[Rfam]
Annotation:
Rfam assigns this 119-nucleotide RNA sequence from Medicago truncatula to the family "MIR2679 microRNA precursor family". The match comes from Rfam's covariance-model search (99 bits). NCBI's taxonomy places the organism under Eukaryota, Mesangiospermae, fabids, Trifolieae, Medicago.

RNA sequence: GUGGCGGUCUGAAACACAUACUUUUCAUUUUCGAACGGGUGAAUGCACAAUCACGUUGGAAGACGUAUAUAUGUUACUCGGAUUACCUUUUUGCGGACCAUUUGUUACGGCUCCUCCAA
Numbered sequence: 001g002u003g004g005c006g007g008u009c010u011g012a013a014a015c016a017c018a019u020a021c022u023u024u025u026c027a028u029u030u031u032c033g034a035a036c037g038g039g040u041g042a043a044u045g046c047a048c049a050a051u052c053a054c055g056u057u058g059g060a061a062g063a064c065g066u067a068u069a070u071a072u073g074u075u076a077c078u079c080g081g082a083u084u085a086c087c088u089u090u091u092u093g094c095g096g097a098c099c100a101u102u103u104g105u106u107a108c109g110g111c112u113c114c115u116c117c118a119a
Base pairs, nucleotide, nucleotide: 002118003117004116006114007113009110010109011108013106014105015104028096029095031093033091034090035089037088038087039086040085041084042083044081052073053072057069058068060066
Dot-bracket structure: .(((.((.(((.(((............((.(.(((.((((((.(.......((...((.(.....).))..)).......).))))))))).).)).......))).)))..)).))).